[Rfam]
RNA sequence: CCGUCCGCCUCGUGAUCGUCUUCUCACCCUUCGCCGGCGGGCGUGUACAGCGGAAGACCCCCGCGAGUGGGGGCACCUCCCAGCGGUAGCUGGGGGAGUGACUCGCGGGGGUCUUCC
Numbered sequence: 001c002c003g004u005c006c007g008c009c010u011c012g013u014g015a016u017c018g019u020c021u022u023c024u025c026a027c028c029c030u031u032c033g034c035c036g037g038c039g040g041g042c043g044u045g046u047a048c049a050g051c052g053g054a055a056g057a058c059c060c061c062c063g064c065g066a067g068u069g070g071g072g073g074c075a076c077c078u079c080c081c082a083g084c085g086g087u088a089g090c091u092g093g094g095g096g097a098g099u100g101a102c103u104c105g106c107g108g109g110g111g112u113c114u115u116c117c
Base pairs, nucleotide, nucleotide: 002043003042004041005040006039007038008037009036012034013033014032015031018028052117053116054115055114056113057112058111059110060109061108062107063106064105065104066103067102
sodF sRNA: a 117-nucleotide sequence from Streptomyces sp. ISL-94. The family's RNA type in Rfam is small RNA. Lineage of the source: Bacteria > Bacillati > Kitasatosporales > Streptomycetaceae > Streptomyces. The literature on the family includes a 2014 paper in Nucleic Acids Res by Kim et al., "Inverse regulation of Fe- and Ni-containing SOD genes by a Fur family regulator Nur through small RNA processed from 3'UTR of the sodF mRNA".